[Rfam]
RNA sequence: AAACAAUAGAUUUUCCGAGCUACUAUCUCUAAGGGCAAAGGUCUAGGAGAAGGAGCCUAUGGGUAUGAAAAGAAAUUUCCAUGCCUCCCGUAUUUGAAAAGGAAACUAACUAGAACUUAU
Numbered sequence: 001a002a003a004c005a006a007u008a009g010a011u012u013u014u015c016c017g018a019g020c021u022a023c024u025a026u027c028u029c030u031a032a033g034g035g036c037a038a039a040g041g042u043c044u045a046g047g048a049g050a051a052g053g054a055g056c057c058u059a060u061g062g063g064u065a066u067g068a069a070a071a072g073a074a075a076u077u078u079c080c081a082u083g084c085c086u087c088c089c090g091u092a093u094u095u096g097a098a099a100a101g102g103a104a105a106c107u108a109a110c111u112a113g114a115a116c117u118u119a120u
Base pairs, nucleotide, nucleotide: 004113006111012105013104014103015102016101019056020055021054023052024051026050027049028048029047033044034043035042036041061086062085063084064083065082066081067080069078070077071076088096